[Rfam]
RNA: Alphaproteobacteria transfer-messenger RNA
RNA sequence: GCCCUUUUCUUUUGCGCGCAGGCAUCCUAUAUCCGCGUUGCCGGGUUCGCCCGGCUAUGGUGAUAAAUUGCGACGUGCAAUAGAUGCAGCGGACCCGGGGGCGGUACCCGGCGGCUCCACCACCACCACCUGGACGCCCGGAAGCGGGUAGGCCGGGGCCCGGUUGUCGCCGGGGUGAUGAUGGGGCCGAACUAGGAUCGACGUGUGUUGAAAAGCGUUGUUUUCACCCGGGCUGAGUAACCCGUUCAAGGCUCAAAACUCAUAAGUGCCAACGACAACGAAGCACUCGCUCUCGCGGCGUAAUCUGACGGCCUAGCGGCCUGAUCUUACAAAGCUAAAGCGCGGUUGGACCGACCGGGCAACAGAACGGAUACC
Numbered sequence: 001g002c003c004c005u006u007u008u009c010u011u012u013u014g015c016g017c018g019c020a021g022g023c024a025u026c027c028u029a030u031a032u033c034c035g036c037g038u039u040g041c042c043g044g045g046u047u048c049g050c051c052c053g054g055c056u057a058u059g060g061u062g063a064u065a066a067a068u069u070g071c072g073a074c075g076u077g078c079a080a081u082a083g084a085u086g087c088a089g090c091g092g093a094c095c096c097g098g099g100g101g102c103g104g105u106a107c108c109c110g111g112c113g114g115c116u117c118c119a120c121c122a123c124c125a126c127c128a129c130c131u132g133g134a135c136g137c138c139c140g141g142a143a144g145c146g147g148g149u150a151g152g153c154c155g156g157g158g159c160c161c162g163g164u165u166g167u168c169g170c171c172g173g174g175g176u177g178a179u180g181a182u183g184g185g186g187c188c189g190a191a192c193u194a195g196g197a198u199c200g201a202c203g204u205g206u207g208u209u210g211a212a213a214a215g216c217g218u219u220g221u222u223u224u225c226a227c228c229c230g231g232g233c234u235g236a237g238u239a240a241c242c243c244g245u246u247c248a249a250g251g252c253u254c255a256a257a258a259c260u261c262a263u264a265a266g267u268g269c270c271a272a273c274g275a276c277a278a279c280g281a282a283g284c285a286c287u288c289g290c291u292c293u294c295g296c297g298g299c300g301u302a303a304u305c306u307g308a309c310g311g312c313c314u315a316g317c318g319g320c321c322u323g324a325u326c327u328u329a330c331a332a333a334g335c336u337a338a339a340g341c342g343c344g345g346u347u348g349g350a351c352c353g354a355c356c357g358g359g360c361a362a363c364a365g366a367a368c369g370g371a372u373a374c375c
Base pairs, nucleotide, nucleotide: 040055041054042053043052044051059228060227061226062225063224070221071220072219073218074217075216076215085207086206087205089204090203091202095111096110097109098108099107112189113188114187115186116185117184118183229244230243231242232241234255235254236253343357344356345355346354348374350372352370